Rfam assigns this 162-nucleotide RNA from Klebsiella sp. RIT-PI-d to the family "sroC RNA". It scores 140 bits against the family's covariance model. For this family Rfam cites "RNomics in Escherichia coli detects new sRNA species and indicates parallel transcriptional output in bacteria" (Vogel et al., Nucleic Acids Res, 2003). About the family: This family consists of a number of bacterial sroC RNA genes of around 160 bases in length. sroC is found in several Enterobacterial species. It base-pairs with GcvB. This interaction triggers the degradation of GcvB by RNase E, alleviating the GcvB-mediated mRNA repression of other amino acid-related transport and metabolic genes. The source organism's lineage runs through Bacteria, Pseudomonadati, Pseudomonadota, Enterobacteriaceae and Klebsiella. Rfam classes the family as a small RNA. The base pairs follow the family's consensus structure, which was predicted with PFOLD. Its family is annotated with regulation of RNA stability and RNA binding in the Gene Ontology.
[Rfam]
RNA sequence: ACUAAUUAAAAAGAACCAGGGGCAGGAUUGCCUGCCCUCUCGAUUGCUGAACAGCAUGGACAGACUAUACGUCGGGGGGUCGUUCCCCACCUGACGCGAAAACCGCAGUACGCUGUUCACCGAUCUUCGAGGGUAGCGCUGCUACCCUUUUUUUCUGGAGUA
Numbered sequence: 001a002c003u004a005a006u007u008a009a010a011a012a013g014a015a016c017c018a019g020g021g022g023c024a025g026g027a028u029u030g031c032c033u034g035c036c037c038u039c040u041c042g043a044u045u046g047c048u049g050a051a052c053a054g055c056a057u058g059g060a061c062a063g064a065c066u067a068u069a070c071g072u073c074g075g076g077g078g079g080u081c082g083u084u085c086c087c088c089a090c091c092u093g094a095c096g097c098g099a100a101a102a103c104c105g106c107a108g109u110a111c112g113c114u115g116u117u118c119a120c121c122g123a124u125c126u127u128c129g130a131g132g133g134u135a136g137c138g139c140u141g142c143u144a145c146c147c148u149u150u151u152u153u154u155c156u157g158g159a160g161u162a
Stems, first nucleotide, its partner, number of pairs: 015161001020037004025031001038132005043124004049118002057105003061098001071095006078088002